[Rfam]
A member of the RNA family "Singlet oxygen resistance RNA X" from Silicimonas algicola, 75 nucleotides long. For this family Rfam cites "Regulation of a polyamine transporter by the conserved 3' UTR-derived sRNA SorX confers resistance to singlet oxygen and organic hydroperoxides in Rhodobacter sphaeroides" (Peng et al., RNA Biol, 2016). By type it is a small RNA.

RNA sequence: AUCCCGUUUCCAUGUCCGGGUUAUGGCAUGGUACCUCCCUGUUGGACUGGCCGGGCUUUCAGCCCGGCCUUUUUU
Dot-bracket structure: .........(((((((........))))))).................((((((((.....))))))))......
Numbered sequence: 001a002u003c004c005c006g007u008u009u010c011c012a013u014g015u016c017c018g019g020g021u022u023a024u025g026g027c028a029u030g031g032u033a034c035c036u037c038c039c040u041g042u043u044g045g046a047c048u049g050g051c052c053g054g055g056c057u058u059u060c061a062g063c064c065c066g067g068c069c070u071u072u073u074u075u
Stems, first nucleotide, its partner, number of pairs: 010031007049069008
Rfam links the family to the GO term response to photooxidative stress. SorX (RSs2461)like SorY is a singlet oxygen induced sRNA that counteracts oxidative stress by targeting mRNA for a transporter in Rhodobacter. It also has an impact on resistance against organic hydroperoxides.